The record is an 89-nucleotide sequence from Nocardiopsis kunsanensis, which matches "Group II catalytic intron D1-D4-1" in Rfam. Rfam's curators write: Group II introns are found in rRNA, tRNA and mRNA of organelles in fungi, plants and protists, and also in mRNA in bacteria. The pairing is the family consensus, mapped onto this sequence.

RNA sequence: CGGCUGGUCCUGUAAAGGGCUGGCUGACCAGGCAGAAGUCAGCAGAGGUCGUAGUACCAGCCGGGAUCAGAUGGUGGGCUGGGAAGGGC
Numbered sequence: 001c002g003g004c005u006g007g008u009c010c011u012g013u014a015a016a017g018g019g020c021u022g023g024c025u026g027a028c029c030a031g032g033c034a035g036a037a038g039u040c041a042g043c044a045g046a047g048g049u050c051g052u053a054g055u056a057c058c059a060g061c062c063g064g065g066a067u068c069a070g071a072u073g074g075u076g077g078g079c080u081g082g083g084a085a086g087g088g089c
Stems, first nucleotide, its partner, number of pairs: 001026002004023008039046002048089003057082006